A member of the RNA family "DUF3800-VII RNA" from Sphingomonas lutea, 86 nucleotides long.
The match comes from Rfam's covariance-model search (41 bits).
[Rfam]
RNA sequence: GGCGGCUAUGCGCCGGAACCACCCAGAGCACCCGAAAGGCUGCAGGCGGGUAACACCGCAAUCAUGGGCCGGGGAGCCGCCUCACU
Numbered sequence: 001g002g003c004g005g006c007u008a009u010g011c012g013c014c015g016g017a018a019c020c021a022c023c024c025a026g027a028g029c030a031c032c033c034g035a036a037a038g039g040c041u042g043c044a045g046g047c048g049g050g051u052a053a054c055a056c057c058g059c060a061a062u063c064a065u066g067g068g069c070c071g072g073g074g075a076g077c078c079g080c081c082u083c084a085c086u
Stems, first nucleotide, its partner, number of pairs: 001081007011073001013072004022068004028043003032039002046059004